[Rfam]
A member of the RNA family "t44 RNA" from Avibacterium volantium, 86 nucleotides long. This family consists of a number of bacterial RNA genes of between 135 and 170 bases in length. The t44 gene has been identified in several species of enteric bacteria but homologs have also been identified in Pseudomonas and Coxiella species. The t44 gene is found between the map and rpsB genes in all species in the full alignment apart from Shigella flexneri. The function of this RNA is unknown. The organism belongs to Avibacterium, within Bacteria. It is annotated as a small RNA. A reference for the family is Tjaden et al. (2002), "Transcriptome analysis of Escherichia coli using high-density oligonucleotide probe arrays", Nucleic Acids Res.

RNA sequence: UAAUUUUUAACAAUAAAUCACACACAUAUCGCACGGAUAAAUCGGGGUGCCAAACGGUCGAUUUAUUUGGUAUGUGGAGGCUAAAC
Numbered sequence: 001u002a003a004u005u006u007u008u009a010a011c012a013a014u015a016a017a018u019c020a021c022a023c024a025c026a027u028a029u030c031g032c033a034c035g036g037a038u039a040a041a042u043c044g045g046g047g048u049g050c051c052a053a054a055c056g057g058u059c060g061a062u063u064u065a066u067u068u069g070g071u072a073u074g075u076g077g078a079g080g081c082u083a084a085a086c
Stems, first nucleotide, its partner, number of pairs: 023076008036067009049058003